[Rfam]
RNA sequence: ACACGUUGGCCACGAGUGUGUGGCGCAGUUCGAUCUCAAGCAAGCAACGGGGCUUGAGA
Dot-bracket structure: ...[[[[[.(((((....)))))..........((((((((...]]]]]..))))))))
RNA: Glutamine-II riboswitch aptamer
Organism: Synechococcus sp. RS9916